The family of this 143-nucleotide sequence from Bradyrhizobium sp. LMTR 3 is "flg-Rhizobiales RNA". Pairs were carried over by alignment from the consensus structure, which is taken from published work. It is annotated as a cis-regulatory element. NCBI's taxonomy places the organism under Bacteria, Pseudomonadati, Pseudomonadota, Hyphomicrobiales, Bradyrhizobium.
RNA sequence: UGGACCCGCCGGCUUGGGAGAGCCCAAAGGUUUACGACGGAUCCGGAUUACGGGCUUGGGAGAGCCUGCUUCGGAUCGAUCAAGGGGAGAUCCACCGAUGGAGAAUAUGCUUCUCGUCGGACUUUCGCGGCAGAUGACGCUGG
Number, nucleotide and partner (000 for none) at each position: 001u034002g033003g032004a031005c000006c030007c029008g000009c000010c000011g024012g023013c022014u021015u020016g000017g000018g000019a000020g015021a014022g013023c012024c011025c000026a000027a000028a000029g007030g006031u004032u003033u002034a001035c000036g000037a000038c000039g000040g077041a076042u075043c074044c073045g072046g000047a000048u000049u000050a000051c000052g000053g066054g065055c064056u063057u062058g000059g000060g000061a000062g057063a056064g055065c054066c053067u000068g000069c000070u000071u000072c045073g044074g043075a042076u041077c040078g000079a000080u000081c000082a000083a000084g000085g000086g000087g000088a000089g000090a000091u000092c000093c000094a000095c120096c119097g118098a117099u116100g000101g115102a114103g113104a112105a111106u000107a000108u000109g000110c000111u105112u104113c103114u102115c101116g099117u098118c097119g096120g095121a000122c000123u000124u000125u000126c000127g000128c000129g000130g000131c000132a000133g000134a000135u000136g000137a000138c000139g000140c000141u000142g000143g000